[Rfam]
RNA sequence: AGCAAUAGCAGAAGUUCAAGGGUGGUCGGCUUGCCCCUAUUUCCUUUUGAAGGGGGGUGAGCGUAUAACAGUAUACGAAUCCCUGUCUCUUAUGAUUUCUUUCGGGAUGCUAGUGAUAGCGAUACUGUCAUUUAACCGUAAAAAUAAAAAAUAGACCUCCCUUGAACCGCCAAUUCUACCAGGAUGAGGUCUAUUUUUCAAAUAGGCUGACUCCUUUGAGUCUGCUAUUGCAAGGACCGAAGGUGUUGCCGCACUUUCG
Numbered sequence: 001a002g003c004a005a006u007a008g009c010a011g012a013a014g015u016u017c018a019a020g021g022g023u024g025g026u027c028g029g030c031u032u033g034c035c036c037c038u039a040u041u042u043c044c045u046u047u048u049g050a051a052g053g054g055g056g057g058u059g060a061g062c063g064u065a066u067a068a069c070a071g072u073a074u075a076c077g078a079a080u081c082c083c084u085g086u087c088u089c090u091u092a093u094g095a096u097u098u099c100u101u102u103c104g105g106g107a108u109g110c111u112a113g114u115g116a117u118a119g120c121g122a123u124a125c126u127g128u129c130a131u132u133u134a135a136c137c138g139u140a141a142a143a144a145u146a147a148a149a150a151a152u153a154g155a156c157c158u159c160c161c162u163u164g165a166a167c168c169g170c171c172a173a174u175u176c177u178a179c180c181a182g183g184a185u186g187a188g189g190u191c192u193a194u195u196u197u198u199c200a201a202a203u204a205g206g207c208u209g210a211c212u213c214c215u216u217u218g219a220g221u222c223u224g225c226u227a228u229u230g231c232a233a234g235g236a237c238c239g240a241a242g243g244u245g246u247u248g249c250c251g252c253a254c255u256u257u258c259g
Stems, first nucleotide, its partner, number of pairs: 002231004007226003011222001013208002015166008028156001030154002036059001039058001041056005068128006080095002105120001178196001210221004238259009
A member of the RNA family "BsrG" from Thermaerobacillus caldiproteolyticus, 259 nucleotides long.
The organism belongs to Thermaerobacillus, within Bacteria.
A search with the family's covariance model found it, with a score of 85 bits.
Rfam classes the family as a small RNA.
Pairs were carried over by alignment from the consensus structure, which was predicted with WAR.
The literature on the family includes a 2013 paper in Nucleic Acids Res by Jahn and Brantl, "One antitoxin--two functions: SR4 controls toxin mRNA decay and translation".